[Rfam]
RNA sequence: UAUAAGGGUCAGUUGGCUAAGUAUACCACUCUCACCCUAGCAUGGUGAGUACCGUAUGGAUAUCAAGAUAUAUGGCCAACAUAAUUUCUGUAACCCUCCUAGGGUUGGCUCUCUAUGGCCGACCCUCCA
Numbered sequence: 001u002a003u004a005a006g007g008g009u010c011a012g013u014u015g016g017c018u019a020a021g022u023a024u025a026c027c028a029c030u031c032u033c034a035c036c037c038u039a040g041c042a043u044g045g046u047g048a049g050u051a052c053c054g055u056a057u058g059g060a061u062a063u064c065a066a067g068a069u070a071u072a073u074g075g076c077c078a079a080c081a082u083a084a085u086u087u088c089u090g091u092a093a094c095c096c097u098c099c100u101a102g103g104g105u106u107g108g109c110u111c112u113c114u115a116u117g118g119c120c121g122a123c124c125c126u127c128c129a
Stems, first nucleotide, its partner, number of pairs: 008080002012076001014028003018025002031049006052075007101126008110118001113117001
The family of this 129-nucleotide RNA from Acer saccharum is "U11 spliceosomal RNA".
A search with the family's covariance model found it, with a score of 46 bits.
The base pairs follow the family's consensus structure, which is taken from published work.